RNA sequence: CUUUGUAUUUUUCCACAGCUUUCUUGAACUGCAUCUAAUUUGCUUUUAUCUCUCAGAUCUCUCUCACUCCCCCUGUUGAUAAGAUAAAGCUAGGGAUUAUCAUCAAUGGAGGGUUUGGGGGUCAAUCUAGAGAGAGAAAAUCUUAGUUAGUUUGCGGUUCAAUAAAGCUGUGGGAAGAUACAGAUA
Numbered sequence: 001c002u003u004u005g006u007a008u009u010u011u012u013c014c015a016c017a018g019c020u021u022u023c024u025u026g027a028a029c030u031g032c033a034u035c036u037a038a039u040u041u042g043c044u045u046u047u048a049u050c051u052c053u054c055a056g057a058u059c060u061c062u063c064u065c066a067c068u069c070c071c072c073c074u075g076u077u078g079a080u081a082a083g084a085u086a087a088a089g090c091u092a093g094g095g096a097u098u099a100u101c102a103u104c105a106a107u108g109g110a111g112g113g114u115u116u117g118g119g120g121g122u123c124a125a126u127c128u129a130g131a132g133a134g135a136g137a138a139a140a141u142c143u144u145a146g147u148u149a150g151u152u153u154g155c156g157g158u159u160c161a162a163u164a165a166a167g168c169u170g171u172g173g174g175a176a177g178a179u180a181c182a183g184a185u186a
Base pairs, nucleotide, nucleotide: 003183004182005181006180007179013173014172015171017169018168019167020166021165022164024162025161026160027159029157030156031155032154033153
RNA: MIR396 microRNA precursor family
Organism: Carnegiea gigantea